Overview: Shown here is an 81-nucleotide sequence from Streptomyces sp. GMY02, a member of the family "Fluoride riboswitch aptamer (crcB RNA motif)". A search with the family's covariance model found it, with a score of 38 bits. The base pairs follow the family's consensus structure, which is taken from published work.
RNA sequence: CUCGACCGUGGCGAUGGAUCCCGCCUGGACCGCCUCCGGUCCGAACCGCCCCGAUCCCGGGCUGAUGGUUCCUGACCACUG
Dot-bracket structure: .........((((..[[[.[[))))......................((((.......))))....]].]]].........